[Rfam]
RNA sequence: UAAGAAAGAAAGGAUCCAAGUGUGCUUUGUGGUUCCCUUGGCCUUGACUCUGUGCUAGAGUAAAGUCUGUUCUUUUCCUCUGCAUUGAAAGGAGUACUGUGUCCUUUAAAUGUAUUCAAAAAAUCAGCACAUCA
Numbered sequence: 001u002a003a004g005a006a007a008g009a010a011a012g013g014a015u016c017c018a019a020g021u022g023u024g025c026u027u028u029g030u031g032g033u034u035c036c037c038u039u040g041g042c043c044u045u046g047a048c049u050c051u052g053u054g055c056u057a058g059a060g061u062a063a064a065g066u067c068u069g070u071u072c073u074u075u076u077c078c079u080c081u082g083c084a085u086u087g088a089a090a091g092g093a094g095u096a097c098u099g100u101g102u103c104c105u106u107u108a109a110a111u112g113u114a115u116u117c118a119a120a121a122a123a124u125c126a127g128c129a130c131a132u133c134a
Base pairs, nucleotide, nucleotide: 005053007051008050010049014045016041017040018039019038020037022035024033025032026031057073058072059071060070061069062068079120081118082117083112084111085110086109087107088106089105091103092102
RNA: Small nucleolar RNA SNORA22
Organism: Microtus ochrogaster